[Rfam]
RNA sequence: CUAUAUAUACCCUGUAGAACCGAAUUUGUGUGAUGAAACCUCAGUCACAGAUUCGAUUCUAGGGGAGUAUAUGGU
Numbered sequence: 001c002u003a004u005a006u007a008u009a010c011c012c013u014g015u016a017g018a019a020c021c022g023a024a025u026u027u028g029u030g031u032g033a034u035g036a037a038a039c040c041u042c043a044g045u046c047a048c049a050g051a052u053u054c055g056a057u058u059c060u061a062g063g064g065g066a067g068u069a070u071a072u073g074g075u
Base pairs, nucleotide, nucleotide: 002073003072004071005070006069007068010065011064012063016060017059018058019057021055022054023053024052025051026050027049028048029047030046
About this RNA:
A member of the RNA family "mir-10 microRNA precursor family" from Pleuronectes platessa, 75 nucleotides long. The literature on the family includes a 2001 paper in Cell by Ambros, "microRNAs: tiny regulators with great potential". Taxonomically the source falls in Pleuronectes (Eukaryota, Actinopterygii, Teleostei, Euacanthomorphacea).